A member of the RNA family "drum RNA", 112 nucleotides long.
Firmicutes, Bacteroidetes (1 example), Proteobacteria (2 examples), Spirochaetes (2 examples).
It is annotated as a small RNA.
[Rfam]
RNA sequence: AAGCGAUGAUACCAAGGGGCGUGCCAAGAGCGUUGUUUGGUUGAGCUUUCGGGAGGGGUUGCACAGUGAAACCUCAACCUGGCUAGGCGUUUGCCGAAAGAAAAUGUGAAUG
Numbered sequence: 001a002a003g004c005g006a007u008g009a010u011a012c013c014a015a016g017g018g019g020c021g022u023g024c025c026a027a028g029a030g031c032g033u034u035g036u037u038u039g040g041u042u043g044a045g046c047u048u049u050c051g052g053g054a055g056g057g058g059u060u061g062c063a064c065a066g067u068g069a070a071a072c073c074u075c076a077a078c079c080u081g082g083c084u085a086g087g088c089g090u091u092u093g094c095c096g097a098a099a100g101a102a103a104a105u106g107u108g109a110a111u112g
Base pairs, nucleotide, nucleotide: 001048002047003046004045011041012040013039014038015037016036018034019033020032021031022030024082025081026080063107064106065105086095087094088093